[Rfam]
RNA sequence: UCAACAGGGACACCUGGAGAGUUUGUGCUCUCUCAGCUCUGUCCAUGUGGCGUAUGGGAGCGUAGGCUUCUGUCCUAUGACGUAUGGUCCCCUUCCACACUGUUGGAGAGCAAGCUGGACCUCCGUGGUCUGCAGCCUGCAUAUUCCUACUGCUUCUCUGAGUCUUAUGGCUGUGACAGAGGAGAUAAACCAUGCAGGAGACAAUU
Dot-bracket structure: ((((((((((((.(((.((((......))))..)))...)))))..((((.....(((((.((.(............)...)).)..))))...)))).))))))).............................(((((((..........((((((...(((....))).......)))))).......)))))))........
Numbered sequence: 001u002c003a004a005c006a007g008g009g010a011c012a013c014c015u016g017g018a019g020a021g022u023u024u025g026u027g028c029u030c031u032c033u034c035a036g037c038u039c040u041g042u043c044c045a046u047g048u049g050g051c052g053u054a055u056g057g058g059a060g061c062g063u064a065g066g067c068u069u070c071u072g073u074c075c076u077a078u079g080a081c082g083u084a085u086g087g088u089c090c091c092c093u094u095c096c097a098c099a100c101u102g103u104u105g106g107a108g109a110g111c112a113a114g115c116u117g118g119a120c121c122u123c124c125g126u127g128g129u130c131u132g133c134a135g136c137c138u139g140c141a142u143a144u145u146c147c148u149a150c151u152g153c154u155u156c157u158c159u160g161a162g163u164c165u166u167a168u169g170g171c172u173g174u175g176a177c178a179g180a181g182g183a184g185a186u187a188a189a190c191c192a193u194g195c196a197g198g199a200g201a202c203a204a205u206u
Stems, first nucleotide, its partner, number of pairs: 001106007008044005014036003018031004047098004056091004060085001062083002065078001136198007153184006162171003
Rfam assigns this 206-nucleotide RNA from Pantherophis guttatus to the family "Small nucleolar RNA SNORA73 family".
U17 (SNORA73A and SNORA73B) also known as E1 belongs to the H/ACA class of small nucleolar RNAs (snoRNAs). Vertebrate U17 is intron-encoded and ranges in length from 200-230 nucleotides, longer than most snoRNAs.
It scores 186 bits against the family's covariance model.
Lineage of the source: Eukaryota > Opisthokonta > Amniota > Episquamata > Pantherophis.
By type it is an H/ACA-box small nucleolar RNA.